[Rfam]
The family of this 75-nucleotide sequence is "Small nucleolar RNA SNORD113/SNORD114 family". From the family's description: The imprinted human domain at 14q32 contains two clusters of tandemly repeated small nucleolar RNAs named 14q(I) and 14q(II) snoRNAs. It is annotated as a C/D-box small nucleolar RNA. The base pairs follow the family's consensus structure, which is taken from published work.
RNA sequence: UGGACCAGUGAUGAAUAUCAUGGGGUUUCUGAAACAACAUUUUUGAUUAAACCCAUCUGCAACUCUGAGGUCCAU
Numbered sequence: 001u002g003g004a005c006c007a008g009u010g011a012u013g014a015a016u017a018u019c020a021u022g023g024g025g026u027u028u029c030u031g032a033a034a035c036a037a038c039a040u041u042u043u044u045g046a047u048u049a050a051a052c053c054c055a056u057c058u059g060c061a062a063c064u065c066u067g068a069g070g071u072c073c074a075u
Base pairs, nucleotide, nucleotide: 002073003072004071005070006069